[Rfam]
RNA sequence: AAAAUCUGGAUCAAGCUGAAAAUUGAAACGACACACAGUCAAUGUGUGUUCGAGUCUCUCAAAUUUUCGCAAUCAGAAGUGAAACAUCUUCGG
Numbered sequence: 001a002a003a004a005u006c007u008g009g010a011u012c013a014a015g016c017u018g019a020a021a022a023u024u025g026a027a028a029c030g031a032c033a034c035a036c037a038g039u040c041a042a043u044g045u046g047u048g049u050u051c052g053a054g055u056c057u058c059u060c061a062a063a064u065u066u067u068c069g070c071a072a073u074c075a076g077a078a079g080u081g082a083a084a085c086a087u088c089u090u091c092g093g
Stems, first nucleotide, its partner, number of pairs: 015070002018068007029052003033049005076091002079088001